[Rfam]
RNA sequence: GGCGUACAUCAAGAGUCGGGUUCUCCCGCACCAACCUGCCGUCCGGGGCAAGGUGGUCAAGUGAUGCGGCCUAGCUGGCAACCAAACCGGCAACC
Numbered sequence: 001g002g003c004g005u006a007c008a009u010c011a012a013g014a015g016u017c018g019g020g021u022u023c024u025c026c027c028g029c030a031c032c033a034a035c036c037u038g039c040c041g042u043c044c045g046g047g048g049c050a051a052g053g054u055g056g057u058c059a060a061g062u063g064a065u066g067c068g069g070c071c072u073a074g075c076u077g078g079c080a081a082c083c084a085a086a087c088c089g090g091c092a093a094c095c
Base pairs, nucleotide, nucleotide: 007066008065009064010063015029017028018027019026020025030057031056032055035053036052037051038049039048040047043090044089045088046087069079070078071077
Notes
This 95-nucleotide RNA from Ramlibacter ginsenosidimutans belongs to the Rfam family "SAM-I/IV (S-adenosyl methionine) riboswitch aptamer". Lineage of the source: Bacteria > Pseudomonadati > Burkholderiales > Comamonadaceae > Ramlibacter. Pairs were carried over by alignment from the consensus structure, which is taken from published work. A reference for the family is Weinberg et al. (2008), "The aptamer core of SAM-IV riboswitches mimics the ligand-binding site of SAM-I riboswitches", RNA.